[Rfam]
RNA sequence: UGGGUCGGCCGGGCGGCCGCGGCUCCACGUGAGUGGGGUCGAGGAAGGUCCGGGCUCCACAGGGCAGGGUGGUGGCCAACAGCCACCCGGGGCAACCCGCGGGAUCAGUGCCACAGAGAACAGACCGCCUCCCUCUCCGGAGGGCGGUAAGGGUGAAACGGUGGUGCAAGAGACCACCAGUGCGCCGGGCGACCGGCGCAGCUAGGCAAACCCCACCCGGAGCAAGAUCAGACAGGAUGCGUUUGAGGGCGGCCCGCCCGAGCAUCCGGGUAGAUCGCACCAGGCGGCCGGCAACGGUCGUCGCAGAUGGAUGGUCGCCCCCGCGCGAGCGGGACAGAACCCGGCCUACAGGCCGACCCACUCC
Numbered sequence: 001u002g003g004g005u006c007g008g009c010c011g012g013g014c015g016g017c018c019g020c021g022g023c024u025c026c027a028c029g030u031g032a033g034u035g036g037g038g039u040c041g042a043g044g045a046a047g048g049u050c051c052g053g054g055c056u057c058c059a060c061a062g063g064g065c066a067g068g069g070u071g072g073u074g075g076c077c078a079a080c081a082g083c084c085a086c087c088c089g090g091g092g093c094a095a096c097c098c099g100c101g102g103g104a105u106c107a108g109u110g111c112c113a114c115a116g117a118g119a120a121c122a123g124a125c126c127g128c129c130u131c132c133c134u135c136u137c138c139g140g141a142g143g144g145c146g147g148u149a150a151g152g153g154u155g156a157a158a159c160g161g162u163g164g165u166g167c168a169a170g171a172g173a174c175c176a177c178c179a180g181u182g183c184g185c186c187g188g189g190c191g192a193c194c195g196g197c198g199c200a201g202c203u204a205g206g207c208a209a210a211c212c213c214c215a216c217c218c219g220g221a222g223c224a225a226g227a228u229c230a231g232a233c234a235g236g237a238u239g240c241g242u243u244u245g246a247g248g249g250c251g252g253c254c255c256g257c258c259c260g261a262g263c264a265u266c267c268g269g270g271u272a273g274a275u276c277g278c279a280c281c282a283g284g285c286g287g288c289c290g291g292c293a294a295c296g297g298u299c300g301u302c303g304c305a306g307a308u309g310g311a312u313g314g315u316c317g318c319c320c321c322c323g324c325g326c327g328a329g330c331g332g333g334a335c336a337g338a339a340c341c342c343g344g345c346c347u348a349c350a351g352g353c354c355g356a357c358c359c360a361c362u363c364c
Base pairs, nucleotide, nucleotide: 001360002359003358004357005356006355007354008353009352010351011349012319013318014317015316016315017314018313020041021040022039023038024037025036026035027034028033046347047346048345050344051343052342053341054340055222056221057220058219062255063254064253065252067218068217069216070215071214072086073085074084075083076082087101088099089098090097091096102213103212108211109210110207111206112205125152126151127148128147129146131144132143133142134141135140160178161177162176163175164174165173180202181200182199183198184197185196186195187194188193226276227275228274229273235267236266237265238264239263240262247259248258249257250256283302284301285300286299287298288297289296290295

Bacterial RNase P class A: a 364-nucleotide RNA from Nocardioides sp. zg-1228. It is annotated as a ribozyme. Taxonomically the source falls in Nocardioides (Bacteria, Actinomycetota, Actinomycetes, Nocardioidaceae). The match comes from Rfam's covariance-model search (292 bits).